[Rfam]
RNA: Pseudomonas sRNA P18
Organism: Pseudomonas sp. M30-35
RNA sequence: GGCGGUGUCCUGCUCAGCCCGUUUCUUAUUUAUGUGGUGUUGGCGUUUGCGGUCACCGGGGUCUUGCGUUUGCUGCUUGCACGCCUUGGCGCUUCACGCUGGAUCUGGCAUGAAGCGCUGUUUGAUACGGCGCUG
Numbered sequence: 001g002g003c004g005g006u007g008u009c010c011u012g013c014u015c016a017g018c019c020c021g022u023u024u025c026u027u028a029u030u031u032a033u034g035u036g037g038u039g040u041u042g043g044c045g046u047u048u049g050c051g052g053u054c055a056c057c058g059g060g061g062u063c064u065u066g067c068g069u070u071u072g073c074u075g076c077u078u079g080c081a082c083g084c085c086u087u088g089g090c091g092c093u094u095c096a097c098g099c100u101g102g103a104u105c106u107g108g109c110a111u112g113a114a115g116c117g118c119u120g121u122u123u124g125a126u127a128c129g130g131c132g133c134u135g
Stems, first nucleotide, its partner, number of pairs: 002067004007062005013051001014049001016047003019043003023039001068133002075097001098131004103126003108121003